[Rfam]
RNA sequence: GGUAGUAGCAAAUACUCAAAUGAGAACUUUGAGGACUGAAGUGGGGAAAGGUUCCAUGUGAACAGCAGUUGGACAUGGGUGAGUCGAUCCUAAGCCAUAGGGAAGUUCCGUUAUAAAGUGCGCGCUUCGCGCCGUGUGGCGAAAGGGAAGCCGGUUAAUAUUCCGGCACCUGGAUAAGGUUUCUUCACGGCAACGUAACUGAAAGUGGAGACGACGGCGGGGGCCCUGGGAAGAGUUCUCUUUUCUUCUUAACGGUCUAUCACCCUGAAAUCGGUUUGUCCGGAGCUAGGGUUUAACGGCCGGCAGAGCACUGCACCUCUGCAGUGUCCGGUGCGCUCUCGACGUCCCUUGAAAAUCCACUGGAAGGAAUAAGAUUCUUGCCAGGUCGUACUCAUAACCGCAGCAGGUCUCCAAGGUGAACAGCCUCUAGUUGA
Numbered sequence: 001g002g003u004a005g006u007a008g009c010a011a012a013u014a015c016u017c018a019a020a021u022g023a024g025a026a027c028u029u030u031g032a033g034g035a036c037u038g039a040a041g042u043g044g045g046g047a048a049a050g051g052u053u054c055c056a057u058g059u060g061a062a063c064a065g066c067a068g069u070u071g072g073a074c075a076u077g078g079g080u081g082a083g084u085c086g087a088u089c090c091u092a093a094g095c096c097a098u099a100g101g102g103a104a105g106u107u108c109c110g111u112u113a114u115a116a117a118g119u120g121c122g123c124g125c126u127u128c129g130c131g132c133c134g135u136g137u138g139g140c141g142a143a144a145g146g147g148a149a150g151c152c153g154g155u156u157a158a159u160a161u162u163c164c165g166g167c168a169c170c171u172g173g174a175u176a177a178g179g180u181u182u183c184u185u186c187a188c189g190g191c192a193a194c195g196u197a198a199c200u201g202a203a204a205g206u207g208g209a210g211a212c213g214a215c216g217g218c219g220g221g222g223g224c225c226c227u228g229g230g231a232a233g234a235g236u237u238c239u240c241u242u243u244u245c246u247u248c249u250u251a252a253c254g255g256u257c258u259a260u261c262a263c264c265c266u267g268a269a270a271u272c273g274g275u276u277u278g279u280c281c282g283g284a285g286c287u288a289g290g291g292u293u294u295a296a297c298g299g300c301c302g303g304c305a306g307a308g309c310a311c312u313g314c315a316c317c318u319c320u321g322c323a324g325u326g327u328c329c330g331g332u333g334c335g336c337u338c339u340c341g342a343c344g345u346c347c348c349u350u351g352a353a354a355a356u357c358c359a360c361u362g363g364a365a366g367g368a369a370u371a372a373g374a375u376u377c378u379u380g381c382c383a384g385g386u387c388g389u390a391c392u393c394a395u396a397a398c399c400g401c402a403g404c405a406g407g408u409c410u411c412c413a414a415g416g417u418g419a420a421c422a423g424c425c426u427c428u429a430g431u432u433g434a
Stems, first nucleotide, its partner, number of pairs: 015033006034432004043412004049392002054078006063071002085388003089146002094140002097111002100109003120132002150167005170384004175380005180374002187196003204361006213346004218341007226331003229249006253302005262292006271283004309326007398407002414426004